The record is a 277-nucleotide sequence from Cryptococcus amylolentus, which matches "Group I catalytic intron" in Rfam. The family's consensus secondary structure is taken from published work. From the family's description: Group I catalytic introns are large self-splicing ribozymes. Rfam links the family to the GO term Group I intron splicing. It scores 84 bits against the family's covariance model.
[Rfam]
RNA sequence: CGGCGCUGUUUGCCACCUCGAUGGGUUUAUAUCUAGAGUCAUCGUCGAGAUACUUAAAACGGGUGAAUUGCAAGAACGUCAUUACUAAUGGUAAUUUGCAGCCUAGCUCUAUUCAGUGCUUUAAUGAAUAGAAAAGGUUCAACGACUAGAAAGUGAGAAGUACUAUCAAUAAUCUUUCCAAGAGCGCCCGUAAAUUACUUUUACAAAAUAUUCAACUUAAUUACAAUUUAAAAAGAAGUAAUUUAUGACAUAGUCUAAUCUACUGGGCGACUAGUAG
Dot-bracket structure: ..........................................................[[[[.[[...((((((....(((((...)))))...))))))((.....(.....((.((...)).))....).....))...(.(((((....................................]].]]]]..(((((((((...............................)))))))))........)))))).....(((((....)))))..
Numbered sequence: 001c002g003g004c005g006c007u008g009u010u011u012g013c014c015a016c017c018u019c020g021a022u023g024g025g026u027u028u029a030u031a032u033c034u035a036g037a038g039u040c041a042u043c044g045u046c047g048a049g050a051u052a053c054u055u056a057a058a059a060c061g062g063g064u065g066a067a068u069u070g071c072a073a074g075a076a077c078g079u080c081a082u083u084a085c086u087a088a089u090g091g092u093a094a095u096u097u098g099c100a101g102c103c104u105a106g107c108u109c110u111a112u113u114c115a116g117u118g119c120u121u122u123a124a125u126g127a128a129u130a131g132a133a134a135a136g137g138u139u140c141a142a143c144g145a146c147u148a149g150a151a152a153g154u155g156a157g158a159a160g161u162a163c164u165a166u167c168a169a170u171a172a173u174c175u176u177u178c179c180a181a182g183a184g185c186g187c188c189c190g191u192a193a194a195u196u197a198c199u200u201u202u203a204c205a206a207a208a209u210a211u212u213c214a215a216c217u218u219a220a221u222u223a224c225a226a227u228u229u230a231a232a233a234a235g236a237a238g239u240a241a242u243u244u245a246u247g248a249c250a251u252a253g254u255c256u257a258a259u260c261u262a263c264u265g266g267g268c269g270a271c272u273a274g275u276a277g
Stems, first nucleotide, its partner, number of pairs: 059191004064186002069100006079091005101138002108131001114126002117123002142256001144255005194242009262275005